[Rfam]
Nucleotides: 099
Stems, first nucleotide, its partner, number of pairs: 013086002017082004023076010034065005040059001
Number, partner (000 for none) and nucleotide at each position: 001000a002000u003000u004000a005000c006000u007000g008000c009000u010000g011000u012000c013086u014085c015000u016000a017082a018081u019080u020079c021000g022000c023076u024075u025074g026073g027072u028071g029070c030069a031068g032067g033000u034065c035064g036063g037062g038061a039000a040059c041000g042000c043000u044000u045000c046000g047000c048000u049000c050000u051000g052000u053000g054000a055000a056000u057000u058000g059040g060000a061038u062037c063036c064035c065034g066000c067032c068031u069030u070029g071028c072027a073026u074025c075024a076023a077000c078000u079020g080019a081018a082017u083000c084000g085014g086013a087000u088000a089000c090000g091000g092000c093000a094000g095000u096000g097000a098000a099000g
Shown here is a 99-nucleotide sequence from Tetracentron sinense, a member of the family "MIR168 microRNA precursor family". The match comes from Rfam's covariance-model search (94 bits). Rfam 15.1 lists 518 matches to the family in 218 species. The organism belongs to Tetracentron, within Eukaryota. Its family is annotated with miRNA-mediated post-transcriptional gene silencing and RISC complex in the Gene Ontology.